[Rfam]
RNA sequence: GAAAUAAUAGUCGCCAUACGGCGAUUUUUUUAUAGCCGAAAACUAGCAAAUCAAACCUUUCAAAGGUAGUGGCAAAUUG
Numbered sequence: 001g002a003a004a005u006a007a008u009a010g011u012c013g014c015c016a017u018a019c020g021g022c023g024a025u026u027u028u029u030u031u032a033u034a035g036c037c038g039a040a041a042a043c044u045a046g047c048a049a050a051u052c053a054a055a056c057c058u059u060u061c062a063a064a065g066g067u068a069g070u071g072g073c074a075a076a077u078u079g
Stems, first nucleotide, its partner, number of pairs: 009026007035047002038044001056066004
Aggregatibacter sRNA 82: a 79-nucleotide RNA sequence from Rodentibacter trehalosifermentans. It scores 72 bits against the family's covariance model. By type it is a small RNA. Rfam describes the family as follows. Validated by RT-PCR, expression down-regulated during growth. Lineage of the source: Bacteria > Pseudomonadati > Pseudomonadota > Gammaproteobacteria > Rodentibacter.